[Rfam]
RNA: Spi-1 (PU.1) 5' UTR regulatory element
Nucleotides: 174
Base pairs, nucleotide, nucleotide: 008043009042010041011040012039013038017034018033020030021029022028023027044169045168046167047166048165065159066158067157068156069155070154073101074100075099076098080096081095082094083093084092085091103146104145106143110135111133112132114130115129116128117127147153148152
Number, partner (000 for none) and nucleotide at each position: 001000c002000u003000c004000c005000c006000c007000g008043a009042g010041g011040g012039c013038u014000c015000c016000u017034g018033u019000a020030g021029c022028u023027c024000a025000g026000g027023g028022g029021g030020c031000a032000g033018g034017c035000c036000c037000a038013a039012g040011c041010c042009c043008u044169g045168c046167g047166u048165c049000c050000a051000c052000c053000c054000c055000a056000c057000g058000g059000c060000c061000c062000g063000a064000c065159c066158g067157u068156c069155c070154a071000g072000u073101c074100c075099c076098c077000c078000g079000a080096c081095g082094g083093g084092g085091c086000a087000c088000c089000c090000c091085g092084u093083c094082c095081c096080g097000a098076g099075g100074g101073g102000c103146u104145c105000c106143g107000c108000u109000c110135u111133g112132g113000c114130c115129c116128c117127c118000c119000c120000g121000g122000a123000g124000g125000c126000a127117g128116g129115g130114g131000a132112c133111c134000c135110g136000a137000c138000c139000c140000g141000c142000a143106c144000a145104g146103a147153g148152c149000u150000c151000g152148g153147c154070u155069g156068g157067a158066u159065g160000u161000u162000a163000c164000a165048g166047g167046c168045g169044u170000g171000c172000a173000a174000g